[Rfam]
RNA sequence: AGGGUCGAGAGGCGCUGCAACGGACCACGGUCCGCCACGCUCGACCCGGUACGACACUCACCCAAGGGCGCCUCCCUGAG
Numbered sequence: 001a002g003g004g005u006c007g008a009g010a011g012g013c014g015c016u017g018c019a020a021c022g023g024a025c026c027a028c029g030g031u032c033c034g035c036c037a038c039g040c041u042c043g044a045c046c047c048g049g050u051a052c053g054a055c056a057c058u059c060a061c062c063c064a065a066g067g068g069c070g071c072c073u074c075c076c077u078g079a080g
Stems, first nucleotide, its partner, number of pairs: 002047007021034005
RNA: SAH (S-adenosyl-L-homocysteine) riboswitch aptamer